This 79-nucleotide RNA from Callorhinus ursinus belongs to the Rfam family "small Cajal body-specific RNA 18". Rfam's curators write: scaRNAs are a specific class of small nuclear RNAs which localise to the Cajal bodies and guide the modification of RNA polymerase II transcribed spliceosomal RNAs U1, U2, U4, U5 and U12. The family's RNA type in Rfam is small Cajal body RNA. Taxonomically the source falls in Callorhinus (Eukaryota, Bilateria, Craniata, Boreoeutheria). The family's consensus secondary structure was predicted with PFOLD. Rfam links the family to the GO terms RNA processing, Cajal body and nucleolus. The family has 20 seed sequences and 406 matches in Rfam 15.1.

RNA sequence: UGGUCGAUGAUGACGUGACCACUGCGCAAUCUGAGUUCUAGGAACCAGGUGAUGGAGUGUGUGCAGAGAACUGAGACCG
Numbered sequence: 001u002g003g004u005c006g007a008u009g010a011u012g013a014c015g016u017g018a019c020c021a022c023u024g025c026g027c028a029a030u031c032u033g034a035g036u037u038c039u040a041g042g043a044a045c046c047a048g049g050u051g052a053u054g055g056a057g058u059g060u061g062u063g064c065a066g067a068g069a070a071c072u073g074a075g076a077c078c079g
Stems, first nucleotide, its partner, number of pairs: 002078004038048002041045001